[Rfam]
RNA: Small nucleolar RNA SNORD101
RNA sequence: GUUUGUGUGAUGAUUUUACUGUAAAGUCGGAUACCCCUUCACUCUUUCUGAGUGAUAACUUCUAUCUGACAAAC
Numbered sequence: 001g002u003u004u005g006u007g008u009g010a011u012g013a014u015u016u017u018a019c020u021g022u023a024a025a026g027u028c029g030g031a032u033a034c035c036c037c038u039u040c041a042c043u044c045u046u047u048c049u050g051a052g053u054g055a056u057a058a059c060u061u062c063u064a065u066c067u068g069a070c071a072a073a074c
Base pairs, nucleotide, nucleotide: 001074002073003072004071005070